RNA: MIR319 microRNA precursor family
RNA sequence: CAGAAAUGGGAGUUCCUUGCAGUCCAAAGCGCCGAGCGAGAAGUAUACAGGCAAAUUCUGUUUUGGACUGAAGGGAGCUCCUAGUUCUU
Numbered sequence: 001c002a003g004a005a006a007u008g009g010g011a012g013u014u015c016c017u018u019g020c021a022g023u024c025c026a027a028a029g030c031g032c033c034g035a036g037c038g039a040g041a042a043g044u045a046u047a048c049a050g051g052c053a054a055a056u057u058c059u060g061u062u063u064u065g066g067a068c069u070g071a072a073g074g075g076a077g078c079u080c081c082u083a084g085u086u087c088u089u
Base pairs, nucleotide, nucleotide: 007083008082009081010080011079012078013077014076015075016074017073018072021069022068024066025065026064027063028062